Shown here is a 180-nucleotide RNA sequence from Desulfonema ishimotonii, a member of the family "6S / SsrS RNA". The source organism's lineage runs through Bacteria, Thermodesulfobacteriota, Desulfobacterales, Desulfococcaceae and Desulfonema. E. coli 6S RNA was the first non coding RNA to be sequenced, but its function was unknown until recently. It consists of 184 nucleotides that fold into an extended hairpin structure with a large single-stranded internal bulge.
[Rfam]
RNA sequence: AAGCCCCUGCCGUGUUCGUGAUUGGAUGAUGCGUUUGAUCCAACAGUUAAAGACGGGGAGCCUCCUCUGGUUUUGGUGUGCAUGUUCUGCGAUGACAGAAAAGCCUGAAGAAGCUACGGGGCGCCCACCAUGAUUACAUGGUUCAAAGGCCUACCAACACGGCACUAUGGUGGGGGUUUU
Dot-bracket structure: .((((((((((((((.(((...........((.(.(((.((..............(((.(((((...(((((((.....((...(((((......)))))..)).....))))))).))))).))).............)).))).).))........)))))))...))))))))))..